Overview:
Small nucleolar RNA SNORD126: a 78-nucleotide RNA sequence from Terrapene triunguis. It scores 66 bits against the family's covariance model. Lineage of the source: Eukaryota > Chordata > Sarcopterygii > Cryptodira > Terrapene. Its family is annotated with nucleolus and RNA processing in the Gene Ontology.

RNA sequence: GGUUUGCCAUGAUGAACUGUAUGUUCAGACCAUCUUUCACCUGAUCCACCCUGAUGCCACAUGUGCCCUGAGCAGACC
Numbered sequence: 001g002g003u004u005u006g007c008c009a010u011g012a013u014g015a016a017c018u019g020u021a022u023g024u025u026c027a028g029a030c031c032a033u034c035u036u037u038c039a040c041c042u043g044a045u046c047c048a049c050c051c052u053g054a055u056g057c058c059a060c061a062u063g064u065g066c067c068c069u070g071a072g073c074a075g076a077c078c
Stems, first nucleotide, its partner, number of pairs: 001078007